glmS glucosamine-6-phosphate activated ribozyme aptamer: a 231-nucleotide sequence from Paenibacillus yonginensis. The family's RNA type in Rfam is riboswitch. The match comes from Rfam's covariance-model search (76 bits). Pairs were carried over by alignment from the consensus structure, which is taken from published work.
[Rfam]
RNA sequence: ACAGCAACAUAAGCGCCAGAGCUUCCUGAACUCGCGCGGAGGGAAUCGGUCACAUAUCGCCCGGAAAGUAAAGGAAAGGGAGACGAGUGUGGCAGGACCCAUGGAGCGGGAAGCUGACGAGGUAGAGGUGUUCGAAACAUUCGGCGGGGACCUCUCGGUUAAGCAUCAAACCGUAAAUCAGACAGCAAAAGGUACGGGUGACCGUUCUUACAAACUGUUGAUGAGAUGCAG
Numbered sequence: 001a002c003a004g005c006a007a008c009a010u011a012a013g014c015g016c017c018a019g020a021g022c023u024u025c026c027u028g029a030a031c032u033c034g035c036g037c038g039g040a041g042g043g044a045a046u047c048g049g050u051c052a053c054a055u056a057u058c059g060c061c062c063g064g065a066a067a068g069u070a071a072a073g074g075a076a077a078g079g080g081a082g083a084c085g086a087g088u089g090u091g092g093c094a095g096g097a098c099c100c101a102u103g104g105a106g107c108g109g110g111a112a113g114c115u116g117a118c119g120a121g122g123u124a125g126a127g128g129u130g131u132u133c134g135a136a137a138c139a140u141u142c143g144g145c146g147g148g149g150a151c152c153u154c155u156c157g158g159u160u161a162a163g164c165a166u167c168a169a170a171c172c173g174u175a176a177a178u179c180a181g182a183c184a185g186c187a188a189a190a191g192g193u194a195c196g197g198g199u200g201a202c203c204g205u206u207c208u209u210a211c212a213a214a215c216u217g218u219u220g221a222u223g224a225g226a227u228g229c230a231g
Base pairs, nucleotide, nucleotide: 020115021114022113023112024111025110026109027108124155125154126153127152128151132144133143134142135141156173157172158171159170160169177222178221179220180219182218183217191208192207194205195204196203197202